[Rfam]
RNA: small nucleolar RNA snoR143
RNA sequence: CUGCAAAGCAUGGUUCCUUAUAUUUUCUUUAUGGUGCCUUAAGCAGCAAUGCAGAAAAUGAUGUCAUUCAAUUGGCAGCGGCCAGACAACCGUGGUGAUGGAUCCACAGAUAGCAGGCAUUUAAGUUCUGCUUGUCUACUGAUUCCAUCACAUAUGU
Numbered sequence: 001c002u003g004c005a006a007a008g009c010a011u012g013g014u015u016c017c018u019u020a021u022a023u024u025u026u027c028u029u030u031a032u033g034g035u036g037c038c039u040u041a042a043g044c045a046g047c048a049a050u051g052c053a054g055a056a057a058a059u060g061a062u063g064u065c066a067u068u069c070a071a072u073u074g075g076c077a078g079c080g081g082c083c084a085g086a087c088a089a090c091c092g093u094g095g096u097g098a099u100g101g102a103u104c105c106a107c108a109g110a111u112a113g114c115a116g117g118c119a120u121u122u123a124a125g126u127u128c129u130g131c132u133u134g135u136c137u138a139c140u141g142a143u144u145c146c147a148u149c150a151c152a153u154a155u156g157u
Stems, first nucleotide, its partner, number of pairs: 002053004008044002011041002013037002016034002019031002095151008112132006